[Rfam]
RNA sequence: CUGCAUUCUGCACGCUCCCGGGCUUCUCUGAAUCUUCGAUUUCUUGACGAGUAGGCCCCAAUGCUUGUGCUAGAUCGACGUCGUCGUGUGUUGCAGAUUUGUCGAACUGUACCUUCUUUUUUUUUUCUCACGGCUGAUCUGUGUCAAAUUUGACGUCAACAAUU
Numbered sequence: 001c002u003g004c005a006u007u008c009u010g011c012a013c014g015c016u017c018c019c020g021g022g023c024u025u026c027u028c029u030g031a032a033u034c035u036u037c038g039a040u041u042u043c044u045u046g047a048c049g050a051g052u053a054g055g056c057c058c059c060a061a062u063g064c065u066u067g068u069g070c071u072a073g074a075u076c077g078a079c080g081u082c083g084u085c086g087u088g089u090g091u092u093g094c095a096g097a098u099u100u101g102u103c104g105a106a107c108u109g110u111a112c113c114u115u116c117u118u119u120u121u122u123u124u125u126u127c128u129c130a131c132g133g134c135u136g137a138u139c140u141g142u143g144u145c146a147a148a149u150u151u152g153a154c155g156u157c158a159a160c161a162a163u164u
Stems, first nucleotide, its partner, number of pairs: 003070004010064002020058005026051003080157001082155005089146002092143006101134003
This 164-nucleotide RNA sequence from Genlisea aurea belongs to the Rfam family "small nucleolar RNA snoR134". By type it is an H/ACA-box small nucleolar RNA. For this family Rfam cites "Mining small RNA sequencing data: a new approach to identify small nucleolar RNAs in Arabidopsis" (Chen and Wu, Nucleic Acids Res, 2009). Rfam links the family to the GO terms RNA processing and nucleolus. Taxonomically the source falls in Genlisea (Eukaryota, Mesangiospermae, lamiids, Lentibulariaceae).